The record is a 333-nucleotide sequence from Erysipelotrichaceae bacterium MTC7, which matches "Bacterial RNase P class B" in Rfam. By type it is a ribozyme. The source organism's lineage runs through Bacteria, Bacillati, Erysipelotrichia, Erysipelotrichales and Erysipelotrichaceae. For this family Rfam cites "Ribonuclease P: unity and diversity in a tRNA processing ribozyme" (Frank and Pace, Annu Rev Biochem, 1998). It scores 280 bits against the family's covariance model. Pairs were carried over by alignment from the consensus structure, which is taken from published work.

RNA sequence: AACGCAGGGUAAUCGCUGCUUGCAAAAGUAGAGGAAAGUCCAUGCUCGCACAGUCUGUGAUGACUGUAGUGUUUGUGCUAGAUGAAAAAAUAAAUCUAGGUAGCGUAAGCUAACGGCUGACAAGAUCCUAAGGGCAACUAUGGAUAGCGUCUUUAAAAGUGCCACAGUGACGAUGCUUUAUGGAAACGUAAAGACUGGAACGGGUAAACCCCACAAGCGAGAAACCCAAAUUUUGGUAGGGGAACUCUAGCGAACAAAACGAAGUUCAAUAGGGACACGUAAGUGUAGAUAAAUGGUUACCACUCUUCGGAGUACAGAACAUGGCUUAUAUGC
Numbered sequence: 001a002a003c004g005c006a007g008g009g010u011a012a013u014c015g016c017u018g019c020u021u022g023c024a025a026a027a028g029u030a031g032a033g034g035a036a037a038g039u040c041c042a043u044g045c046u047c048g049c050a051c052a053g054u055c056u057g058u059g060a061u062g063a064c065u066g067u068a069g070u071g072u073u074u075g076u077g078c079u080a081g082a083u084g085a086a087a088a089a090a091u092a093a094a095u096c097u098a099g100g101u102a103g104c105g106u107a108a109g110c111u112a113a114c115g116g117c118u119g120a121c122a123a124g125a126u127c128c129u130a131a132g133g134g135c136a137a138c139u140a141u142g143g144a145u146a147g148c149g150u151c152u153u154u155a156a157a158a159g160u161g162c163c164a165c166a167g168u169g170a171c172g173a174u175g176c177u178u179u180a181u182g183g184a185a186a187c188g189u190a191a192a193g194a195c196u197g198g199a200a201c202g203g204g205u206a207a208a209c210c211c212c213a214c215a216a217g218c219g220a221g222a223a224a225c226c227c228a229a230a231u232u233u234u235g236g237u238a239g240g241g242g243a244a245c246u247c248u249a250g251c252g253a254a255c256a257a258a259a260c261g262a263a264g265u266u267c268a269a270u271a272g273g274g275a276c277a278c279g280u281a282a283g284u285g286u287a288g289a290u291a292a293a294u295g296g297u298u299a300c301c302a303c304u305c306u307u308c309g310g311a312g313u314a315c316a317g318a319a320c321a322u323g324g325c326u327u328a329u330a331u332g333c
Base pairs, nucleotide, nucleotide: 004333005332006331007329008301009300010299011298012297013296014295016031017030018029019028020027021026036327037326038325040324041323042322043321044320045221046220047219048218049217050067051066052065053064054063055062073216074215075214076213077212078099079098080097081096082095083094100114101112102111103110104109115211116210119151120150121149125145126144127143128142132139133138159209160208161205162204163203176193177192178191179190180189181188182187225241226240227239245274246273247272248271249270275286276285277284278283303312304311305310
Dot-bracket structure: ...(((((((((((.((((((....))))))....[[[.[[[[[(((((((((((......)))))).....(((((((((((..........))))))(((((....)))).)((..(((...((((...((....))..))))...))).......(((((............(((((((....))))))).........)))..))))))))))))))...(((...........)))...(((((....................)))))((((....))))........))))))).(((....))).......]]]]]]]].).)))